[Rfam]
RNA sequence: UUCCACAGCUACUGGUCUGCAACUGUUCUUACAGUAGCAGUUGUAGCAUUCCUCUGUGGGAAAGAAACUUACACAAUUUAAUUCCUCUUUCUUACCAGACAGAAAGAAGAAUAUGCGUGACAGACACAA
Numbered sequence: 001u002u003c004c005a006c007a008g009c010u011a012c013u014g015g016u017c018u019g020c021a022a023c024u025g026u027u028c029u030u031a032c033a034g035u036a037g038c039a040g041u042u043g044u045a046g047c048a049u050u051c052c053u054c055u056g057u058g059g060g061a062a063a064g065a066a067a068c069u070u071a072c073a074c075a076a077u078u079u080a081a082u083u084c085c086u087c088u089u090u091c092u093u094a095c096c097a098g099a100c101a102g103a104a105a106g107a108a109g110a111a112u113a114u115g116c117g118u119g120a121c122a123g124a125c126a127c128a129a
Stems, first nucleotide, its partner, number of pairs: 003059004017046009071118002074115002084109001086107007